[Rfam]
RNA sequence: AUCGUGCUCCGGGGGUCGGUGAAAUUCCGAACCGGCGGUUAUAGUCCGCGACCCGGUUCAUUCAGUUCCUCUUGAAUGGCCCGGCCGAAUCGGUGAAAUUCCGGUACCGACAGUCACAGUCUGGAUAAAGGCGCACGAG
Numbered sequence: 001a002u003c004g005u006g007c008u009c010c011g012g013g014g015g016u017c018g019g020u021g022a023a024a025u026u027c028c029g030a031a032c033c034g035g036c037g038g039u040u041a042u043a044g045u046c047c048g049c050g051a052c053c054c055g056g057u058u059c060a061u062u063c064a065g066u067u068c069c070u071c072u073u074g075a076a077u078g079g080c081c082c083g084g085c086c087g088a089a090u091c092g093g094u095g096a097a098a099u100u101c102c103g104g105u106a107c108c109g110a111c112a113g114u115c116a117c118a119g120u121c122u123g124g125a126u127a128a129a130g131g132c133g134c135a136c137g138a139g
Stems, first nucleotide, its partner, number of pairs: 003137005009131002017029003031120002033109002035049004044107002053084004089105005111123003